A member of the RNA family "Selenocysteine transfer RNA" from Coprothermobacter proteolyticus, 92 nucleotides long.
A search with the family's covariance model found it, with a score of 77 bits.
[Rfam]
RNA sequence: GGGAGCAGAAGGGUGCUGGUGUGCCUGCCGGACUUCAAAUCCGGUUCCUCGUCCAAAAAGGCGAGGGGUGGGUUCGAUUCCCACAUGCUCCC
Numbered sequence: 001g002g003g004a005g006c007a008g009a010a011g012g013g014u015g016c017u018g019g020u021g022u023g024c025c026u027g028c029c030g031g032a033c034u035u036c037a038a039a040u041c042c043g044g045u046u047c048c049u050c051g052u053c054c055a056a057a058a059a060g061g062c063g064a065g066g067g068g069u070g071g072g073u074u075c076g077a078u079u080c081c082c083a084c085a086u087g088c089u090c091c092c
Stems, first nucleotide, its partner, number of pairs: 001092007008084001011026006027045006047066005069083004
Pairs were carried over by alignment from the consensus structure, which is taken from published work.